The record is an 81-nucleotide RNA from Anabas testudineus, which matches "mir-26 microRNA precursor family" in Rfam. The base pairs follow the family's consensus structure, which was predicted with RNAalifold. The match comes from Rfam's covariance-model search (60 bits). NCBI's taxonomy places the organism under Eukaryota, Opisthokonta, Gnathostomata, Actinopterygii, Anabas. On this family, see Lagos-Quintana et al., Science 2001: "Identification of novel genes coding for small expressed RNAs".
[Rfam]
RNA sequence: CUGCCCCCAAGUACAAGUAAUCAAGCAUAGGCCAAAGCAGACACAGAAAGCCUAUCCUGGAUUACUUGAACCAGGUAGCAG
Numbered sequence: 001c002u003g004c005c006c007c008c009a010a011g012u013a014c015a016a017g018u019a020a021u022c023a024a025g026c027a028u029a030g031g032c033c034a035a036a037g038c039a040g041a042c043a044c045a046g047a048a049a050g051c052c053u054a055u056c057c058u059g060g061a062u063u064a065c066u067u068g069a070a071c072c073a074g075g076u077a078g079c080a081g
Base pairs, nucleotide, nucleotide: 002080003079004078007075008074011071012070014068015067016066017065018064019063020062021061022060024058025057027055028054029053030052031051032050